[Rfam]
RNA sequence: CUUGUGGACUGUUAUAGCAAAUGAGAGUAGUAUAUCUCACGGUAUAAGAACAAAACCAGACAGGUUGAAGCAAGAA
Numbered sequence: 001c002u003u004g005u006g007g008a009c010u011g012u013u014a015u016a017g018c019a020a021a022u023g024a025g026a027g028u029a030g031u032a033u034a035u036c037u038c039a040c041g042g043u044a045u046a047a048g049a050a051c052a053a054a055a056c057c058a059g060a061c062a063g064g065u066u067g068a069a070g071c072a073a074g075a076a
Base pairs, nucleotide, nucleotide: 001074002073003072004071005070009063010062011061012060013059022058023057030051031050035049036048
A member of the RNA family "RAGATH-18 RNA", 76 nucleotides long. Pairs were carried over by alignment from the consensus structure, which is taken from published work. The sequence is in the family's curated seed alignment. Rfam classes the family as a small RNA.